Bacterial small signal recognition particle RNA: a 95-nucleotide sequence from Mycoplasma wenyonii. By type it is a non-coding RNA gene. Lineage of the source: Bacteria > Mycoplasmatota > Mollicutes > Mycoplasmataceae > Mycoplasma wenyonii. The family's consensus secondary structure is taken from published work. It scores 44 bits against the family's covariance model. The signal recognition particle (SRP) is a universally conserved ribonucleoprotein involved in the co-translational targeting of proteins to membranes.

[Rfam]
RNA sequence: CUUUUAGCUAUAGCUAUUUAGCUAGUUCGAACCAAGUCAGGCUAGAAAUAGAGCAGCUUUAAGGAUUACUUAUUGAGCUAUAGCCCUAAUUUACU
Numbered sequence: 001c002u003u004u005u006a007g008c009u010a011u012a013g014c015u016a017u018u019u020a021g022c023u024a025g026u027u028c029g030a031a032c033c034a035a036g037u038c039a040g041g042c043u044a045g046a047a048a049u050a051g052a053g054c055a056g057c058u059u060u061a062a063g064g065a066u067u068a069c070u071u072a073u074u075g076a077g078c079u080a081u082a083g084c085c086c087u088a089a090u091u092u093a094c095u
Stems, first nucleotide, its partner, number of pairs: 004089004008083006014075001016074001018072001020070002023068006034059004042051003